A member of the RNA family "Small nucleolar RNA SNORD73" from Hymenochirus boettgeri, 58 nucleotides long. For this family Rfam cites "A novel snoRNA (U73) is encoded within the introns of the human and mouse ribosomal protein S3a genes" (Rebane et al., Gene, 1998). The base pairs follow the family's consensus structure, which was predicted with PFOLD. It is annotated as a C/D-box small nucleolar RNA. It scores 44 bits against the family's covariance model.
RNA sequence: AAUGGAUGAUGACUAUUUCGGUCCCAAAUGAUGCCUGUGAUUACUACUUUUUGACAUU
Numbered sequence: 001a002a003u004g005g006a007u008g009a010u011g012a013c014u015a016u017u018u019c020g021g022u023c024c025c026a027a028a029u030g031a032u033g034c035c036u037g038u039g040a041u042u043a044c045u046a047c048u049u050u051u052u053g054a055c056a057u058u
Base pairs, nucleotide, nucleotide: 001058002057003056004055